[Rfam]
RNA sequence: AAAAGUAAAGAUAAAAACGCAACGUAUGCAGUGAUGCAUACCAGAGCCGGUAGGUAGCCCGGCCGUCCUGCAUAUUAGGGUAAGUAACCUGCCCCUCCGGGUUGUCCAUUCUUUGCUCAUUUCAA
Dot-bracket structure: ...((((((((..................................(((((........))))).((((((.....)))))).........((((....)))).......))))))))........
The record is a 125-nucleotide RNA sequence from Clostridium sp. L2-50, which matches "azaaromatic riboswitch aptamer (yjdF RNA)" in Rfam.
Rfam's curators put it in the seed alignment.